[Rfam]
RNA sequence: UCUUUCGUUUACCUGGUACUCAGUGUAGGGUCUGUGUGCUAUAAAUACAGCUACAUCUGAUUACUGGGUCAGUGAAGGCAUCU
Numbered sequence: 001u002c003u004u005u006c007g008u009u010u011a012c013c014u015g016g017u018a019c020u021c022a023g024u025g026u027a028g029g030g031u032c033u034g035u036g037u038g039c040u041a042u043a044a045a046u047a048c049a050g051c052u053a054c055a056u057c058u059g060a061u062u063a064c065u066g067g068g069u070c071a072g073u074g075a076a077g078g079c080a081u082c083u
Base pairs, nucleotide, nucleotide: 013067014066015065016064017063018062020060021059022058023056024055025054026053027052028051032050033049034048035047

The record is an 83-nucleotide RNA sequence from Astyanax mexicanus, which matches "mir-221 microRNA precursor family" in Rfam. Lineage of the source: Eukaryota > Bilateria > Gnathostomata > Neopterygii > Astyanax. Rfam 15.1 lists 1,797 matches to the family in 643 species. Gene Ontology terms of the family: RISC complex and miRNA-mediated post-transcriptional gene silencing. For this family Rfam cites "Parallel DNA pyrosequencing unveils new zebrafish microRNAs" (Soares et al., BMC Genomics, 2009).